[Rfam]
RNA sequence: CUAGGGGCCGUGUCAACCGGGCCUGACGGUAUGGUGAACAGGAGGUCUUUUUCCCGGUUUCUCUUCCUGGCCAACGAAACGGCAGACGAGCACCUUAUCCCGUCCGGCCC
Numbered sequence: 001c002u003a004g005g006g007g008c009c010g011u012g013u014c015a016a017c018c019g020g021g022c023c024u025g026a027c028g029g030u031a032u033g034g035u036g037a038a039c040a041g042g043a044g045g046u047c048u049u050u051u052u053c054c055c056g057g058u059u060u061c062u063c064u065u066c067c068u069g070g071c072c073a074a075c076g077a078a079a080c081g082g083c084a085g086a087c088g089a090g091c092a093c094c095u096u097a098u099c100c101c102g103u104c105c106g107g108c109c110c
Base pairs, nucleotide, nucleotide: 006109007108008107009106012022013021014020025104026103027102028101029100033094034093035092036091039069040068041067042066043065044064045063070083071082072081

The record is a 110-nucleotide RNA sequence from Mesorhizobium sp. 8, which matches "Rhizobiales sRNA Atu_At1" in Rfam.
A search with the family's covariance model found it, with a score of 97 bits.
The organism belongs to Mesorhizobium, within Bacteria.
The family's consensus secondary structure was predicted with CMfinder.